[Rfam]
RNA sequence: CUGCUUCGCCCUUCUUGGGCGUUUCCUCCCUAAAACUCAGGCCGCUGAACUUCAGCGGCCUUUUUUCUGCCAUAA
Numbered sequence: 001c002u003g004c005u006u007c008g009c010c011c012u013u014c015u016u017g018g019g020c021g022u023u024u025c026c027u028c029c030c031u032a033a034a035a036c037u038c039a040g041g042c043c044g045c046u047g048a049a050c051u052u053c054a055g056c057g058g059c060c061u062u063u064u065u066u067c068u069g070c071c072a073u074a075a
Stems, first nucleotide, its partner, number of pairs: 008020004040060009
Makes More Granules Regulator RNA (mmgR): a 75-nucleotide RNA from Azospirillum sp. TSO22-1. Lineage of the source: Bacteria > Pseudomonadati > Pseudomonadota > Alphaproteobacteria > Azospirillum. Rfam links the family to the GO terms DNA-templated transcription, termination, response to nitrogen compound and protein binding. It scores 58 bits against the family's covariance model.